[Rfam]
RNA sequence: UAGAUAGAUGCUCGCUGGUUUGAGUGCUUAGCUGUUAACUAAGAGUUUAAAGGAUCGAGGCCUUUCUGUCUAG
Number, nucleotide and partner (000 for none) at each position: 001u072002a071003g070004a069005u068006a067007g066008a000009u000010g025011c024012u023013c022014g000015c000016u000017g000018g000019u000020u000021u000022g013023a012024g011025u010026g000027c043028u042029u041030a040031g039032c000033u000034g000035u000036u000037a000038a000039c031040u030041a029042a028043g027044a000045g000046u000047u000048u000049a065050a064051a063052g062053g061054a000055u000056c000057g000058a000059g000060g000061c053062c052063u051064u050065u049066c007067u006068g005069u004070c003071u002072a001073g000
RNA: tRNA